[Rfam]
RNA: Ribosomal protein L19 leader
RNA sequence: ACGAUGUUCCGCUGUGUAUUAUUAAAGAUAUGCAUGAGUGUCGG
Numbered sequence: 001a002c003g004a005u006g007u008u009c010c011g012c013u014g015u016g017u018a019u020u021a022u023u024a025a026a027g028a029u030a031u032g033c034a035u036g037a038g039u040g041u042c043g044g
Base pairs, nucleotide, nucleotide: 003042004041005040006039007038008037009036013034014033016031017030018029019028